[Rfam]
RNA sequence: CCCGCAGACCGCCUUAUCGCCUCCCGCCUUGGCGGGGGGAGGAAAGUCCGGACACCACAGAGAAGCAUAGCGGGUAACACCCGUCGGUUCUGAGCAAUCAGAAUCAGGACAAGUGCAACAGAAAGUAUGUACAGGUAAUGCUGUAGUGAAAACAGGUAAACUCUAUGCGGUGAAAUACCAAGUAUAUCAGCAUUUAAGAGCGUCUCGUUCGUUGUUGAAGGGUAGGUAGCUCGAGUCCCGUAGUAAUACGUGAUCUAGAUAAAUGAUAAGGUAUUGUUACUUGUAACAAGAACAGAAUCCGGCUUACAGGUCUGCAUUUUUU
Numbered sequence: 001c002c003c004g005c006a007g008a009c010c011g012c013c014u015u016a017u018c019g020c021c022u023c024c025c026g027c028c029u030u031g032g033c034g035g036g037g038g039g040a041g042g043a044a045a046g047u048c049c050g051g052a053c054a055c056c057a058c059a060g061a062g063a064a065g066c067a068u069a070g071c072g073g074g075u076a077a078c079a080c081c082c083g084u085c086g087g088u089u090c091u092g093a094g095c096a097a098u099c100a101g102a103a104u105c106a107g108g109a110c111a112a113g114u115g116c117a118a119c120a121g122a123a124a125g126u127a128u129g130u131a132c133a134g135g136u137a138a139u140g141c142u143g144u145a146g147u148g149a150a151a152a153c154a155g156g157u158a159a160a161c162u163c164u165a166u167g168c169g170g171u172g173a174a175a176u177a178c179c180a181a182g183u184a185u186a187u188c189a190g191c192a193u194u195u196a197a198g199a200g201c202g203u204c205u206c207g208u209u210c211g212u213u214g215u216u217g218a219a220g221g222g223u224a225g226g227u228a229g230c231u232c233g234a235g236u237c238c239c240g241u242a243g244u245a246a247u248a249c250g251u252g253a254u255c256u257a258g259a260u261a262a263a264u265g266a267u268a269a270g271g272u273a274u275u276g277u278u279a280c281u282u283g284u285a286a287c288a289a290g291a292a293c294a295g296a297a298u299c300c301g302g303c304u305u306a307c308a309g310g311u312c313u314g315c316a317u318u319u320u321u322u
Stems, first nucleotide, its partner, number of pairs: 004315007011307001012271007020039008044305003048302005053172004060206004065168005070084005085107001086105008108163002113161002115157002130145005176228004187218005198210004235254003239250004